[Rfam]
A member of the RNA family "Small nucleolar RNA SNORA64/SNORA10 family" from Carlito syrichta, 134 nucleotides long. NCBI's taxonomy places the organism under Eukaryota, Bilateria, Teleostomi, Euteleostomi, Carlito. The base pairs follow the family's consensus structure, which is taken from published work. Its family is annotated with RNA processing and nucleolus in the Gene Ontology. Its Rfam clan is "SNORA64 clan".
RNA sequence: ACUCUCGCAACUCUGCUUGGUUACACUUGGCUUCACACGAGUGACUUUAAUAAUGGGGAGAGAAAAAAGACUUCCUUGGGAGGCCUCAGAUUGGCCAUGUUGUGGUCUCUCUUUCCUUCAGGGGCACAACAGGU
Numbered sequence: 001a002c003u004c005u006c007g008c009a010a011c012u013c014u015g016c017u018u019g020g021u022u023a024c025a026c027u028u029g030g031c032u033u034c035a036c037a038c039g040a041g042u043g044a045c046u047u048u049a050a051u052a053a054u055g056g057g058g059a060g061a062g063a064a065a066a067a068a069g070a071c072u073u074c075c076u077u078g079g080g081a082g083g084c085c086u087c088a089g090a091u092u093g094g095c096c097a098u099g100u101u102g103u104g105g106u107c108u109c110u111c112u113u114u115c116c117u118u119c120a121g122g123g124g125c126a127c128a129a130c131a132g133g134u
Stems, first nucleotide, its partner, number of pairs: 003063003008060001011058005019046006026039001072124005078118003088112003093107004
Overview: On this family, see Narayanan et al., EMBO J 1999: "Nucleolar localization signals of box H/ACA small nucleolar RNAs". It is annotated as an H/ACA-box small nucleolar RNA. From the family's description: This family belongs to the H/ACA class of small nucleolar RNAs (snoRNAs) which act as guides in the the modification of uridines to pseudouridines.